[Rfam]
RNA sequence: UAUUAAGGGCAUAAGGCGGAUGCCUUGGCACUAGGAGCCGAUGAAGGACGCGGUAAGCUGCGAUAAGCUUCGGGGAGACGCAAGCAGUCAUUGAUCCGAAGAUUUCCGAAUGGGGAAACCCACAUGGAGUAAUGUCCAUGUAUCAUUAGAUGAAUACAUAGUCUAAUGAGGGGAACCCGGGGAACUGAAACAUCUAAGUACCCGGAGGAAGAGAAAGAAAAAUCGAUUCCCUGAGUAGCGGCGAGCGAAAAGGGAAGAGCCCAAACCGAUGAAGUUUACUUUGUCGGGGUUGCGGAUAUGCCAUCACGUGGCGGCUAUUGUAAUCGAAGAGGUCUGGAAAGGCCCACCAUAGAAGGUAACAGUCCUGUAGAUGAAACAAGAAGGCCACAGGCAUACUCCAGAGUACCACGGGACACGUGAAACCCUGUGGGAAGCUGGGGGGACCACCCCCCAAGGCUAAAUACUACCUAGUGACCGAUAGCGCAUAGUACCGUGAGGGAAAGGUGAAAAGAACCCCGGGAGGGGAGUGAAAUAGAACCUGAAACCUUAUGCCUACAAA
Dot-bracket structure: ......((((((((((.....(((..(((((((((((((......((((((........))).....(((((((..(((.......))).....)))))))...)))....(((....)))(((((((......))))))).(((((((((.........))))))))).))...((((((.....((....))......))))).).........((....))..((((((.....((.....))....)))))..((((....(((((((........)))))))......((..(((((......((((...(.((((.(((...(.((((......)))))..(...).(((.......)))...)))...)))).)..))))..)))))...))......(((((((...........)))))))......(((((......)))))..))))..)..)).))))))).))..............((....))....)).........((((....)))).............).....)))))))))).....

Rfam assigns this 559-nucleotide part of an RNA from Peptoclostridium acidaminophilum to the family "Bacterial large subunit ribosomal RNA".